[Rfam]
RNA sequence: GCCAGGCAUGGUCGCCAGUGCCCAUAGUCCCAGCUACUCAGGAGGCUGAGGCAGGAAGAUGACUUGAGCCCAGGAGUUCUGGGCUGUAGUGUGCUAUGCUGAUCAGCUGUCCCCACUAAGUUCAACUUCAGUAGGGUGGCUUGCUGGGAGUGGAGGGCCACCAGGUUGCCUAAGAGGUGGGGGUAAGCAACCCAGGUCAGAAACAGAGCAAGUCAAAACUCCCAUGCUGAUCAGUAGUGGGAUCAAGCCUGUGAAUAGCCACCAUACUCCAACCUGGGCAACAUAGUGAGACCCCAUCUCUU
Numbered sequence: 001g002c003c004a005g006g007c008a009u010g011g012u013c014g015c016c017a018g019u020g021c022c023c024a025u026a027g028u029c030c031c032a033g034c035u036a037c038u039c040a041g042g043a044g045g046c047u048g049a050g051g052c053a054g055g056a057a058g059a060u061g062a063c064u065u066g067a068g069c070c071c072a073g074g075a076g077u078u079c080u081g082g083g084c085u086g087u088a089g090u091g092u093g094c095u096a097u098g099c100u101g102a103u104c105a106g107c108u109g110u111c112c113c114c115a116c117u118a119a120g121u122u123c124a125a126c127u128u129c130a131g132u133a134g135g136g137u138g139g140c141u142u143g144c145u146g147g148g149a150g151u152g153g154a155g156g157g158c159c160a161c162c163a164g165g166u167u168g169c170c171u172a173a174g175a176g177g178u179g180g181g182g183g184u185a186a187g188c189a190a191c192c193c194a195g196g197u198c199a200g201a202a203a204c205a206g207a208g209c210a211a212g213u214c215a216a217a218a219c220u221c222c223c224a225u226g227c228u229g230a231u232c233a234g235u236a237g238u239g240g241g242a243u244c245a246a247g248c249c250u251g252u253g254a255a256u257a258g259c260c261a262c263c264a265u266a267c268u269c270c271a272a273c274c275u276g277g278g279c280a281a282c283a284u285a286g287u288g289a290g291a292c293c294c295c296a297u298c299u300c301u302u
Base pairs, nucleotide, nucleotide: 001046002045003044005022006021007020008019009018011016028043029042030041048300049299050298051297054294055293060289062287063286064285068279069278070277071276072275073274074273080271081270082269083268085266086265087264089262090261091260093259094258095257096256097255099253104251105250106249108247110245111241112240114239115238116237117236118235120232122230123229124228126226128224129168130167131166132165135162136161137160138159139158140157141156142155144153145152146151169177170176179222180221181220182219184217190213191212197206
RNA: Metazoan signal recognition particle RNA
Organism: Phyllostomus discolor